Rfam assigns this 84-nucleotide sequence from Medicago truncatula to the family "MIR2617 microRNA precursor family".
Lineage of the source: Eukaryota > Streptophytina > Gunneridae > rosids > Medicago.
The match comes from Rfam's covariance-model search (58 bits).
Rfam links the family to the GO terms RISC complex and miRNA-mediated post-transcriptional gene silencing.
RNA sequence: GAGUAGUGUGACAUGCCCGUUUGGGAUAUACUCUGAUAUUUAUUUAUUAAUUAAUUGUUUGGGAUAACGGGAUGUUACAUUAUC
Numbered sequence: 001g002a003g004u005a006g007u008g009u010g011a012c013a014u015g016c017c018c019g020u021u022u023g024g025g026a027u028a029u030a031c032u033c034u035g036a037u038a039u040u041u042a043u044u045u046a047u048u049a050a051u052u053a054a055u056u057g058u059u060u061g062g063g064a065u066a067a068c069g070g071g072a073u074g075u076u077a078c079a080u081u082a083u084c
Base pairs, nucleotide, nucleotide: 003083004082005081006080007079008078009077010076011075012074013073014072016071017070018069019068020067021066